[Rfam]
Record summary:
Rfam assigns this 47-nucleotide sequence from Erwinia sorbitola to the family "Guanidine-II riboswitch aptamer (mini-ykkC)". About the family: Simpler in structure and has fewer highly conserved nucleotide positions than the ykkC-yxkD leader. Despite this each of its two stem-loop structures directly bind free guanidine.

RNA sequence: CCCUGGGGACGACCCCAGGCGGCCAUGAUUCUGGCGGGACGGCCCGC
Number, nucleotide and partner (000 for none) at each position: 001c000002c019003c018004u017005g016006g015007g014008g013009a000010c000011g000012a000013c008014c007015c006016c005017a004018g003019g002020c000021g000022g000023c000024c000025a000026u000027g000028a000029u000030u000031c000032u000033g000034g047035c046036g045037g044038g043039a000040c000041g000042g000043c038044c037045c036046g035047c034

Its family is annotated with regulation of gene expression in the Gene Ontology. Pairs were carried over by alignment from the consensus structure, which is taken from published work. The family has 72 seed sequences and 1,589 matches in Rfam 15.1. The source organism's lineage runs through Bacteria, Pseudomonadota, Gammaproteobacteria, Enterobacterales and Erwinia.